[Rfam]
RNA: Glycine riboswitch aptamer
RNA sequence: ACAAGCCGAUCUGGAGAGAGAUCUUAAUUGAUCCGCCGAAGGGGCACGCAGCAAAGCUGCUAAACUCUCAGGCAAAAGGACAGCGGGAGCG
Dot-bracket structure: .....(((..(((......((((......)))).(((((..(((...((((.....))))....))))).))).......)))))).....